RNA sequence: CGGCACCCGGGACGCAUCGAUCUCUGGACCGCAGCACGGUCGCCAUGGCGGGUCACCCCGCCAGGUCCGGAGGGAGCGAGUGGCGAGACCGACCCGUGACACG
Numbered sequence: 001c002g003g004c005a006c007c008c009g010g011g012a013c014g015c016a017u018c019g020a021u022c023u024c025u026g027g028a029c030c031g032c033a034g035c036a037c038g039g040u041c042g043c044c045a046u047g048g049c050g051g052g053u054c055a056c057c058c059c060g061c062c063a064g065g066u067c068c069g070g071a072g073g074g075a076g077c078g079a080g081u082g083g084c085g086a087g088a089c090c091g092a093c094c095c096g097u098g099a100c101a102c103g
Base pairs, nucleotide, nucleotide: 001103002102006098008096009095010094011093013078014077015076022072023071024070025069026068027067028066029065038090039089040086041085042084043083044082
The record is a 103-nucleotide sequence, which matches "c-di-GMP-II-GAG riboswitch aptamer" in Rfam. The family is grouped with related families in Rfam's "c-di-GMP_II riboswitch clan". On this family, see Weinberg et al., Proc Natl Acad Sci U S A 2017: "Bioinformatic analysis of riboswitch structures uncovers variant classes with altered ligand specificity". Pairs were carried over by alignment from the consensus structure, which is taken from published work.